RNA sequence: CCAUGCUAGAUGGGGAGUCAGCGGUGCCCUGUAACCUGCAAUCCGCUAUAGCAGGAUUGAAUUCCUCGCUUAGGUAUUAGCGAUUUAUAGUCCGACUCUUGUAAGUGGUGUUGAUGACUGGGUCCCACGCAAUGGAAGCCCAUGAACCUCGUCAGAUCCGGAAGGAAGCAGCGAUAAGUGGUUUCUUUCAUGUGCCGUGGAUCAAUCUGGUCUGAGCUAACUGCAGGAGUAACGUAUAGAAAACUAAUAACGAAGCGAGGUGCAUGG
Numbered sequence: 001c002c003a004u005g006c007u008a009g010a011u012g013g014g015g016a017g018u019c020a021g022c023g024g025u026g027c028c029c030u031g032u033a034a035c036c037u038g039c040a041a042u043c044c045g046c047u048a049u050a051g052c053a054g055g056a057u058u059g060a061a062u063u064c065c066u067c068g069c070u071u072a073g074g075u076a077u078u079a080g081c082g083a084u085u086u087a088u089a090g091u092c093c094g095a096c097u098c099u100u101g102u103a104a105g106u107g108g109u110g111u112u113g114a115u116g117a118c119u120g121g122g123u124c125c126c127a128c129g130c131a132a133u134g135g136a137a138g139c140c141c142a143u144g145a146a147c148c149u150c151g152u153c154a155g156a157u158c159c160g161g162a163a164g165g166a167a168g169c170a171g172c173g174a175u176a177a178g179u180g181g182u183u184u185c186u187u188u189c190a191u192g193u194g195c196c197g198u199g200g201a202u203c204a205a206u207c208u209g210g211u212c213u214g215a216g217c218u219a220a221c222u223g224c225a226g227g228a229g230u231a232a233c234g235u236a237u238a239g240a241a242a243a244c245u246a247a248u249a250a251c252g253a254a255g256c257g258a259g260g261u262g263c264a265u266g267g
Stems, first nucleotide, its partner, number of pairs: 001267006009058003012030004017025003035055005064260007073251001075249003080244001084240006093234002097228006105221002107218003116212008125200005130192002133190005138183001140181004149174004157166003
The family of this 267-nucleotide sequence from Clostridium sp. DL-VIII is "Bacterial large signal recognition particle RNA".
Pairs were carried over by alignment from the consensus structure, which is taken from published work.
The family is grouped with related families in Rfam's "SRP clan".
From the family's description: The signal recognition particle (SRP) is a universally conserved ribonucleoprotein involved in the co-translational targeting of proteins to membranes.
Lineage of the source: Bacteria > Bacillati > Clostridia > Clostridiaceae > Clostridium.
Its family is annotated with SRP-dependent cotranslational protein targeting to membrane, signal sequence recognition and signal recognition particle, plasma membrane targeting in the Gene Ontology.
It scores 208 bits against the family's covariance model.
It is annotated as a non-coding RNA gene.